Overview
The record is a 76-nucleotide RNA sequence from Cyphomyrmex costatus, which matches "HDV ribozyme from F. prausnitzii" in Rfam. The match comes from Rfam's covariance-model search (45 bits).
RNA sequence: AGUUUUCGAAAGUCGUUCACUUCCUCGUGGUGAAAACUGGAUAACGUUUAUAUUGAUAAACGGCAAAGAAACGACA
Numbered sequence: 001a002g003u004u005u006u007c008g009a010a011a012g013u014c015g016u017u018c019a020c021u022u023c024c025u026c027g028u029g030g031u032g033a034a035a036a037c038u039g040g041a042u043a044a045c046g047u048u049u050a051u052a053u054u055g056a057u058a059a060a061c062g063g064c065a066a067a068g069a070a071a072c073g074a075c076a
Stems, first nucleotide, its partner, number of pairs: 001038007019031003045062007
For this family Rfam cites "Widespread occurrence of self-cleaving ribozymes" (Webb et al., Science, 2009).